[Rfam]
RNA: ZMP/ZTP riboswitch aptamer (pfl RNA motif)
Organism: Clostridium chromiireducens
RNA sequence: AUUUGGUCAUAUGACUGACGGAAGUGGAGUUACCACAUGAAGUAUGACUAAGGCAUAAUAUAUUAUAUUAUAUGCCAAAGAGCCGACCGUCUGGGCAAAAAAG
Dot-bracket structure: ..((((((((((..(.[[[[[..((((.....))))..)..))))))))))..............................(((..]]]]]..))).......